[Rfam]
RNA sequence: UUCUGGUGACAUUUGGCGGUAUCAGUUUUACUCCGUAACUGCUCUGCCGCCC
Number, nucleotide and partner (000 for none) at each position: 001u000002u000003c000004u000005g000006g000007u000008g000009a000010c000011a000012u000013u000014u000015g051016g050017c049018g048019g047020u046021a045022u000023c041024a040025g039026u038027u000028u000029u000030a000031c000032u000033c000034c000035g000036u000037a000038a026039c025040u024041g023042c000043u000044c000045u021046g020047c019048c018049g017050c016051c015052c000
This 52-nucleotide RNA sequence from Escherichia coli belongs to the Rfam family "DicF RNA". About the family: DicF RNA is an antisense inhibitor of cell division gene ftsZ. DicF and Hfq are necessary to reduce FtsZ protein levels, leading to cell filamentation under anaerobic conditions. Pairs were carried over by alignment from the consensus structure, which was predicted with PFOLD. Rfam links the family to the GO terms negative regulation of translation and mRNA binding. It is one of the family's seed sequences. The source organism's lineage runs through Bacteria, Enterobacterales, Enterobacteriaceae, Escherichia and Escherichia coli O157:H7.